RNA sequence: AAGGCCCUCCCACUCUGUGUAUUUGACAAGCUGAGCUAGACACUCGGUAUAACAGGGGUGUCAGUUUGUCAAAUACCCCAAGUGUGAGGUCUCUCGUC
Number, nucleotide and partner (000 for none) at each position: 001a000002a000003g000004g000005c000006c000007c000008u000009c000010c000011c084012a083013c082014u081015c000016u000017g078018u000019g076020u075021a074022u073023u072024u071025g070026a069027c068028a067029a066030g065031c064032u063033g000034a000035g000036c000037u000038a000039g062040a061041c060042a059043c000044u057045c056046g000047g000048u000049a000050u000051a000052a000053c000054a000055g000056g045057g044058g000059u042060g041061u040062c039063a032064g031065u030066u029067u028068g027069u026070c025071a024072a023073a022074u021075a020076c019077c000078c017079c000080a000081a014082g013083u012084g011085u000086g000087a000088g000089g000090u000091c000092u000093c000094u000095c000096g000097u000098c000

Overview:
The family of this 98-nucleotide sequence from Megalops atlanticus is "mir-223 microRNA precursor family". The family's consensus secondary structure was predicted with RNAalifold. Lineage of the source: Eukaryota > Craniata > Vertebrata > Teleostomi > Megalops. The match comes from Rfam's covariance-model search (80 bits). A reference for the family is Lim et al. (2003), "Vertebrate microRNA genes", Science.